[Rfam]
RNA sequence: AGAGCAUCAGUGAUGAAUAUCUCCUAUUUGUUAUCCUUGCACUUUGAUAUCCCAUGAAGAAAUCUUGAGGGGAAGAAAAGAUCUGAGAUGCUU
Numbered sequence: 001a002g003a004g005c006a007u008c009a010g011u012g013a014u015g016a017a018u019a020u021c022u023c024c025u026a027u028u029u030g031u032u033a034u035c036c037u038u039g040c041a042c043u044u045u046g047a048u049a050u051c052c053c054a055u056g057a058a059g060a061a062a063u064c065u066u067g068a069g070g071g072g073a074a075g076a077a078a079a080g081a082u083c084u085g086a087g088a089u090g091c092u093u
Stems, first nucleotide, its partner, number of pairs: 002093007
Source information:
The family of this 93-nucleotide sequence from Amborella trichopoda is "Small nucleolar RNA snoR26". It is annotated as a C/D-box small nucleolar RNA. On this family, see Brown et al., RNA 2001: "Multiple snoRNA gene clusters from Arabidopsis". Rfam links the family to the GO terms nucleolus and RNA processing.